[Rfam]
RNA: small nucleolar RNA snoR114
RNA sequence: AAGCUAUGAUGAUAUCUGCGCUCCGUUGAAUAUUUGGGUUAUUCACACUCGUCAGAUUCCAGACGAUUCAGCAGCGGUUCAGAGCUU
Dot-bracket structure: ((((...............................................................................))))